mir-92 microRNA precursor family: a 77-nucleotide RNA from Labrus bergylta.
RNA sequence: CGUCCUGUGCAGGUGGGGAUUGGUAGCAAUGCUGUGUAAUUUGAGGUAUUGCACUUGUCCCGGCCUGUGUGGGAUUG
Number, nucleotide and partner (000 for none) at each position: 001c000002g000003u000004c073005c072006u071007g000008u000009g068010c067011a066012g065013g064014u063015g000016g061017g060018g059019a058020u057021u000022g055023g054024u053025a000026g052027c051028a050029a049030u048031g047032c046033u045034g000035u000036g000037u000038a000039a000040u000041u000042u000043g000044a000045g033046g032047u031048a030049u029050u028051g027052c026053a024054c023055u022056u000057g020058u019059c018060c017061c016062g000063g014064c013065c012066u011067g010068u009069g000070u000071g006072g005073g004074a000075u000076u000077g000
Description
Rfam's curators write: This family represents the microRNA precursor mir-92. Human miR-92 has two predicted hairpin precursor sequences: mir-92-1 on chromosome 13 and mir-92-2 on chromosome X. miR-92 has also been cloned from mouse embryonic stem cells. The mature sequence is excised from the 3' arm of the hairpin. The source organism's lineage runs through Eukaryota, Eumetazoa, Acanthomorphata, Eupercaria and Labrus. The literature on the family includes a 2003 paper in Dev Cell by Houbaviy et al., "Embryonic stem cell-specific MicroRNAs". Clan: mir-92 microRNA precursor clan.